RNA sequence: AGGCAGCCCACUUCAGUAUAUUCAAAUCUCAAGUGAGGUGUUUAACUGCUCGUAAAACGAACAUAACUUUUGCUCUUCAGAUUUGCUGAGAUGCAUCUACGAUGCACCCCUGAAGCAGGUCUAGUAAGCAUUAGCACAUC
Number, nucleotide and partner (000 for none) at each position: 001a000002g042003g041004c040005a039006g000007c038008c037009c035010a034011c033012u032013u031014c000015a029016g028017u000018a000019u000020a000021u000022u000023c000024a000025a000026a000027u000028c016029u015030c000031a013032a012033g011034u010035g009036a000037g008038g007039u005040g004041u003042u002043u000044a000045a000046c000047u000048g000049c000050u000051c000052g000053u000054a000055a000056a000057a000058c000059g000060a000061a000062c000063a000064u000065a000066a000067c134068u133069u000070u000071u000072g129073c128074u127075c000076u000077u000078c000079a122080g121081a120082u119083u118084u000085g116086c115087u114088g000089a000090g108091a000092u106093g105094c104095a103096u102097c101098u000099a000100c000101g097102a096103u095104g094105c093106a092107c000108c090109c000110c000111u000112g000113a000114a087115g086116c085117a000118g083119g082120u081121c080122u079123a000124g000125u000126a000127a074128g073129c072130a000131u000132u000133a068134g067135c000136a000137c000138a000139u000140c000